[Rfam]
RNA sequence: GGUGGCACAUUGAACAUCUAUCAUACACACAGAUGGAAACUUCCAUGUGUGGAUUAAUAAUCUUUGCUUAUCAUCUGAUGCCUUG
Numbered sequence: 001g002g003u004g005g006c007a008c009a010u011u012g013a014a015c016a017u018c019u020a021u022c023a024u025a026c027a028c029a030c031a032g033a034u035g036g037a038a039a040c041u042u043c044c045a046u047g048u049g050u051g052g053a054u055u056a057a058u059a060a061u062c063u064u065u066g067c068u069u070a071u072c073a074u075c076u077g078a079u080g081c082c083u084u085g
Base pairs, nucleotide, nucleotide: 004082005081006080007079
Rfam assigns this 85-nucleotide RNA sequence from Triticum urartu to the family "Small nucleolar RNA R16". For this family Rfam cites "Purified box C/D snoRNPs are able to reproduce site-specific 2'-O-methylation of target RNA in vitro" (Galardi et al., Mol Cell Biol, 2002). The organism belongs to Triticum, within Eukaryota. It is annotated as a C/D-box small nucleolar RNA.